Rfam assigns this 88-nucleotide RNA sequence from Oryzias melastigma to the family "Small nucleolar RNA SNORD35". The literature on the family includes a 1996 paper in J Mol Biol by Nicoloso et al., "Intron-encoded, antisense small nucleolar RNAs: the characterization of nine novel species points to their direct role as guides for the 2'-O-ribose methylation of rRNAs". The family's RNA type in Rfam is C/D-box small nucleolar RNA. A search with the family's covariance model found it, with a score of 49 bits. About the family: U35 is a C/D box snoRNA located in intron 6 of ribosomal protein L13A and intron 3 of ribosomal protein S11 in humans and at homologous positions in mouse and chicken ribosomal protein genes. U35 guides the methylation of 2'-O-ribose sites in 28S rRNA.
RNA sequence: UGCAAAUGAUGCAAUUUUCUCACGAUGGUCUUCCAAGCUCUCUGGUAGCUCUGACGAAGUUGCCUUUGGCGAACACUGAUGCAGCCGU
Dot-bracket structure: ((((...........................................................................)))).....